Small nucleolar RNA SNORD113/SNORD114 family: a 72-nucleotide RNA from Cervus elaphus. The organism belongs to Cervus elaphus, within Eukaryota. A search with the family's covariance model found it, with a score of 39 bits. Its family is annotated with nucleolus and RNA processing in the Gene Ontology. On this family, see Cavaille et al., Hum Mol Genet 2002: "Identification of tandemly-repeated C/D snoRNA genes at the imprinted human 14q32 domain reminiscent of those at the Prader-Willi/Angelman syndrome region". Rfam 15.1 lists 5,721 matches to the family in 142 species.

RNA sequence: CAGACCAAUGAUGAUGGUCGUUUCGGGAAGAGUCCUAAACGAUGAAAACGUGGCUAGAUCUCUGAGGUCCAC
Numbered sequence: 001c002a003g004a005c006c007a008a009u010g011a012u013g014a015u016g017g018u019c020g021u022u023u024c025g026g027g028a029a030g031a032g033u034c035c036u037a038a039a040c041g042a043u044g045a046a047a048a049c050g051u052g053g054c055u056a057g058a059u060c061u062c063u064g065a066g067g068u069c070c071a072c
Stems, first nucleotide, its partner, number of pairs: 003069004
The imprinted human domain at 14q32 contains two clusters of tandemly repeated small nucleolar RNAs named 14q(I) and 14q(II) snoRNAs. These two clusters are named SNORD113 and SNORD114 respectively in the HGNC approved gene symbol nomenclature.
Pairs were carried over by alignment from the consensus structure, which is taken from published work.